[Rfam]
The record is a 194-nucleotide RNA from Streptococcus varani, which matches "6S / SsrS RNA" in Rfam.
It is annotated as a non-coding RNA gene.

RNA sequence: AAACUGCUGUGGUAUACGAAUUCAUACCUAUGUGUUGACCGACUAUUUUUUGUAUUAUUCGGGAAACGAAAGAUUUCUGGCAGUAUGCAGGCCGUCUCACACGGAAGCAACUAAGUCAGGAACGAGUUACCCACCUGCUUCUAUGCGCGGGAUCAAUACAAAUCUUGAAUUACCGGUACCAAUACAGCAUUUUU
Numbered sequence: 001a002a003a004c005u006g007c008u009g010u011g012g013u014a015u016a017c018g019a020a021u022u023c024a025u026a027c028c029u030a031u032g033u034g035u036u037g038a039c040c041g042a043c044u045a046u047u048u049u050u051u052g053u054a055u056u057a058u059u060c061g062g063g064a065a066a067c068g069a070a071a072g073a074u075u076u077c078u079g080g081c082a083g084u085a086u087g088c089a090g091g092c093c094g095u096c097u098c099a100c101a102c103g104g105a106a107g108c109a110a111c112u113a114a115g116u117c118a119g120g121a122a123c124g125a126g127u128u129a130c131c132c133a134c135c136u137g138c139u140u141c142u143a144u145g146c147g148c149g150g151g152a153u154c155a156a157u158a159c160a161a162a163u164c165u166u167g168a169a170u171u172a173c174c175g176g177u178a179c180c181a182a183u184a185c186a187g188c189a190u191u192u193u194u
Stems, first nucleotide, its partner, number of pairs: 002192002005189007012179004017175002031160004036155003039151002061132003065128003075121007087108002092104004
Dot-bracket structure: .((.(((((((((((.((............((((.(((((....................(((.(((.......(((((((.....((...((((.....))))..))......)))))))....))).))).................)).))).)))).............))))))...))))))).))..
A reference for the family is Wassarman and Storz (2000), "6S RNA regulates E. coli RNA polymerase activity", Cell. The match comes from Rfam's covariance-model search (76 bits).